The family of this 156-nucleotide sequence from Cloacibacillus porcorum is "Molybdenum/Tungsten riboswitch aptamer (Moco RNA motif)". A search with the family's covariance model found it, with a score of 68 bits.
RNA sequence: ACUUAGUUGCAACCCCGAGUUUCAUUUCCUAACGCGAACAGGCUAUGGAGAUGUGACCAGUGAGCCGAAAGGCUCCAAGGGCUUUUGCGGGAAACCGCGAAGCCUCCCGGGAUGCGCAGAGCAUCCGAAUUGGAAAGGGGUAAGAGUAUAUUUGCC
Dot-bracket structure: ..(..(.....(((((..(((.(((((((....((......))...))))))).)))....((((......))))...((((((.(((((....)))))))))))((........................))...))))).....)..)......
About this RNA: The family's consensus secondary structure is taken from published work.